[Rfam]
Nucleotides: 081
Base pairs, nucleotide, nucleotide: 002080003079004078005077007075008074009073010072011071012070014068015067016066017065018064019063020062021061022060024058025057026056028054029053030052031051032050033049
Number, partner (000 for none) and nucleotide at each position: 001000u002080u003079g004078u005077u006000g007075c008074c009073c010072g011071g012070u013000u014068c015067a016066a017065g018064u019063a020062a021061u022060c023000c024058a025057g026056g027000a028054u029053a030052g031051g032050c033049u034000g035000u036000u037000u038000a039000c040000a041000c042000u043000c044000c045000a046000c047000c048000u049033g050032g051031c052030c053029u054028a055000c056026c057025c058024u059000c060022g061021a062020u063019u064018a065017c066016u067015u068014g069000c070012a071011u072010u073009g074008g075007g076000a077005g078004a079003c080002a081000g